RNA: PreQ1-II (pre queuosine) riboswitch aptamer
RNA sequence: ACUGGUAUAAUGUAAAACGUUGCUAAAUGGGUAGCAACCCUCAGAACUUCUGACCUUUUUCUGAGCAUAUUACACGCGGUUUAGCCGCUAAAGGAGAAAAAAUG
Numbered sequence: 001a002c003u004g005g006u007a008u009a010a011u012g013u014a015a016a017a018c019g020u021u022g023c024u025a026a027a028u029g030g031g032u033a034g035c036a037a038c039c040c041u042c043a044g045a046a047c048u049u050c051u052g053a054c055c056u057u058u059u060u061c062u063g064a065g066c067a068u069a070u071u072a073c074a075c076g077c078g079g080u081u082u083a084g085c086c087g088c089u090a091a092a093g094g095a096g097a098a099a100a101a102a103u104g
Stems, first nucleotide, its partner, number of pairs: 019038007040065007054094004076088004